The record is a 62-nucleotide RNA sequence from Propithecus coquereli, which matches "Small nucleolar RNA SNORD43" in Rfam. By type it is a C/D-box small nucleolar RNA. A search with the family's covariance model found it, with a score of 66 bits. The base pairs follow the family's consensus structure.
[Rfam]
RNA sequence: CAGGCGAUGAACUUACUAACGGGCAGACAGAGACACUGUGCUCUUUGUCAAGUUCUGACUUG
Numbered sequence: 001c002a003g004g005c006g007a008u009g010a011a012c013u014u015a016c017u018a019a020c021g022g023g024c025a026g027a028c029a030g031a032g033a034c035a036c037u038g039u040g041c042u043c044u045u046u047g048u049c050a051a052g053u054u055c056u057g058a059c060u061u062g
Base pairs, nucleotide, nucleotide: 001062002061003060004059
A reference for the family is Duga et al. (2000), "The intron-containing L3 ribosomal protein gene (RPL3): sequence analysis and identification of U43 and of two novel intronic small nucleolar RNAs", Biochim Biophys Acta. Rfam's curators write: U43 is a C/D box small nucleolar RNA that is encoded in intron 1 of the ribosomal protein L3 gene in human and cow. Three other snoRNAs ( U82, U83a and U83b) are also encoded in the same host gene but from different introns. The rice homologue is expressed from a cluster also containing snoR16.